[Rfam]
The record is a 229-nucleotide RNA sequence from Dendrobium nobile, which matches "RNase MRP" in Rfam. A reference for the family is Schmitt et al. (1993), "Secondary structure of RNase MRP RNA as predicted by phylogenetic comparison", FASEB J.
RNA sequence: GUGCUGCUGAAUGAAGUGAUUCGGCCUUAGUGUCGUGGAAAGUCCCCGGGCCAUGUCUCAGAAAUGUGAAUACAGCAAUGUAUUUUAAUCUUUGCGGAUUCGCUUAAGGCUGAGACGCGCUUGUGGAGCCUAUGACAGCUUGAAUCUGAAGAUUACUUGGCCGCAUCUUCACAGUAAUUCACUUUGCCUCACGGAAGAUUAACAGAACGGGGCUUACAUUACAGCAGCA
Numbered sequence: 001g002u003g004c005u006g007c008u009g010a011a012u013g014a015a016g017u018g019a020u021u022c023g024g025c026c027u028u029a030g031u032g033u034c035g036u037g038g039a040a041a042g043u044c045c046c047c048g049g050g051c052c053a054u055g056u057c058u059c060a061g062a063a064a065u066g067u068g069a070a071u072a073c074a075g076c077a078a079u080g081u082a083u084u085u086u087a088a089u090c091u092u093u094g095c096g097g098a099u100u101c102g103c104u105u106a107a108g109g110c111u112g113a114g115a116c117g118c119g120c121u122u123g124u125g126g127a128g129c130c131u132a133u134g135a136c137a138g139c140u141u142g143a144a145u146c147u148g149a150a151g152a153u154u155a156c157u158u159g160g161c162c163g164c165a166u167c168u169u170c171a172c173a174g175u176a177a178u179u180c181a182c183u184u185u186g187c188c189u190c191a192c193g194g195a196a197g198a199u200u201a202a203c204a205g206a207a208c209g210g211g212g213c214u215u216a217c218a219u220u221a222c223a224g225c226a227g228c229a
Base pairs, nucleotide, nucleotide: 002229003228004227005226006225007224008223009222011220014184015183016182017181018180019179040215041214042213044212045211046210047209057068059066060065069084070083071082072081073080074079086155087154088153089152090151091150092149093148094147098145099144100143101142109139110138111137112136119129120128121127122126186199188197189196
The source organism's lineage runs through Eukaryota, Streptophyta, Asparagales, Dendrobiinae and Dendrobium.
About the family: RNase MRP is an enzymatically active ribonucleoprotein with two distinct roles in eukaryotes. In mitochondria it plays a direct role in the initiation of mitochondrial DNA replication. In the nucleus it is involved in precursor rRNA processing, where it cleaves the internal transcribed spacer 1 between 18S and 5.8S rRNAs.
It is annotated as a ribozyme.
A search with the family's covariance model found it, with a score of 80 bits.